[Rfam]
RNA sequence: AACAUUACACAAACAAAAGCACUGGCUUGAGUUUUGACUGCAGUAAGUGCUAAUUGUUGGGGUAGUGCUG
Numbered sequence: 001a002a003c004a005u006u007a008c009a010c011a012a013a014c015a016a017a018a019g020c021a022c023u024g025g026c027u028u029g030a031g032u033u034u035u036g037a038c039u040g041c042a043g044u045a046a047g048u049g050c051u052a053a054u055u056g057u058u059g060g061g062g063u064a065g066u067g068c069u070g
Stems, first nucleotide, its partner, number of pairs: 004066005010060001013057004018051006025044003

A member of the RNA family "miR-430 microRNA precursor family" from Mola mola, 70 nucleotides long. A reference for the family is Giraldez et al. (2005), "MicroRNAs regulate brain morphogenesis in zebrafish", Science. NCBI's taxonomy places the organism under Eukaryota, Metazoa, Vertebrata, Euteleosteomorpha, Mola. Pairs were carried over by alignment from the consensus structure, which was predicted with RNAalifold. Its Rfam clan is "mir-290 clan".